[Rfam]
RNA sequence: AUUUUAGGAACGAAGCCUAAAGUCGCCACAUCGUGUGACAACGGCUUCGUGACCAACAUUCUGUUCG
Numbered sequence: 001a002u003u004u005u006a007g008g009a010a011c012g013a014a015g016c017c018u019a020a021a022g023u024c025g026c027c028a029c030a031u032c033g034u035g036u037g038a039c040a041a042c043g044g045c046u047u048c049g050u051g052a053c054c055a056a057c058a059u060u061c062u063g064u065u066c067g
Stems, first nucleotide, its partner, number of pairs: 011049007025039001027037003053067001055065003
Shown here is a 67-nucleotide RNA sequence from Bacillus sp. FJAT-50079, a member of the family "Bacillaceae-1 RNA". The organism belongs to Bacillus, within Bacteria. The base pairs follow the family's consensus structure, which is taken from published work. It is annotated as a small RNA.